Shown here is a 93-nucleotide RNA sequence from Herbaspirillum sp. Sphag64, a member of the family "Burkholderia RNA 7 (anti-hemB)". The source organism's lineage runs through Bacteria, Pseudomonadati, Betaproteobacteria, Burkholderiales and Herbaspirillum. Gene Ontology terms of the family: bacterial biofilm matrix and protein binding. Rfam 15.1 lists 479 matches to the family in 458 species. This RNA motif was identified by computational search in b-proteobacteria Burkholderia. Co-purified with Hfq, expression confirmed by Northern blot.
RNA sequence: CCCCCGCUUACCCUUCCCUCCCUGAGCGGGGCUCGUCGUACAAACGAGGAGCAUUUGGCCCCGGAAUGGCUUGACCUUCCGGGGUCUUUUUAU
Numbered sequence: 001c002c003c004c005c006g007c008u009u010a011c012c013c014u015u016c017c018c019u020c021c022c023u024g025a026g027c028g029g030g031g032c033u034c035g036u037c038g039u040a041c042a043a044a045c046g047a048g049g050a051g052c053a054u055u056u057g058g059c060c061c062c063g064g065a066a067u068g069g070c071u072u073g074a075c076c077u078u079c080c081g082g083g084g085u086c087u088u089u090u091u092a093u
Stems, first nucleotide, its partner, number of pairs: 003030008031052004036047003059084008